[Rfam]
RNA: small Cajal body-specific RNA 18
RNA sequence: CGGUCCGUGAUGAGUAGCCACUGCGCAAGCCGAGUUCGGCGGGACCGGUGAGGAAGCUUGUGCUGGGGAAGGUACCUGAGACCC
Numbered sequence: 001c002g003g004u005c006c007g008u009g010a011u012g013a014g015u016a017g018c019c020a021c022u023g024c025g026c027a028a029g030c031c032g033a034g035u036u037c038g039g040c041g042g043g044a045c046c047g048g049u050g051a052g053g054a055a056g057c058u059u060g061u062g063c064u065g066g067g068g069a070a071g072g073u074a075c076c077u078g079a080g081a082c083c084c
Base pairs, nucleotide, nucleotide: 002083003082004081005080037047038046039045